[Rfam]
Notes:
Rfam assigns this 94-nucleotide RNA sequence from Nomascus leucogenys to the family "Y RNA". The base pairs follow the family's consensus structure, which is taken from published work. It is annotated as a non-coding RNA gene.

RNA sequence: GGCUGGUCUGAUGGUAAUGAGUUAUCAGAACUUAACAUUGGUGUCACUGAAGUUGGUAUACAAUGCCCCCACUGCUAAAUUUGACUAGCUUAAA
Numbered sequence: 001g002g003c004u005g006g007u008c009u010g011a012u013g014g015u016a017a018u019g020a021g022u023u024a025u026c027a028g029a030a031c032u033u034a035a036c037a038u039u040g041g042u043g044u045c046a047c048u049g050a051a052g053u054u055g056g057u058a059u060a061c062a063a064u065g066c067c068c069c070c071a072c073u074g075c076u077a078a079a080u081u082u083g084a085c086u087a088g089c090u091u092a093a094a
Stems, first nucleotide, its partner, number of pairs: 001090008010082002015077001016073001018071002021068001027057001030054001